[Rfam]
RNA: mir-9242 microRNA precursor family
Organism: Cnephaeus nilssonii
RNA sequence: GGCCACCCUCUGCGGGGCAAUCGAUGGGGGAGCUCCCCGAUCGAUCGCCCCAAAGAGGGAGGCC
Numbered sequence: 001g002g003c004c005a006c007c008c009u010c011u012g013c014g015g016g017g018c019a020a021u022c023g024a025u026g027g028g029g030g031a032g033c034u035c036c037c038c039g040a041u042c043g044a045u046c047g048c049c050c051c052a053a054a055g056a057g058g059g060a061g062g063c064c
Stems, first nucleotide, its partner, number of pairs: 001064004006059006014051005020045006027038004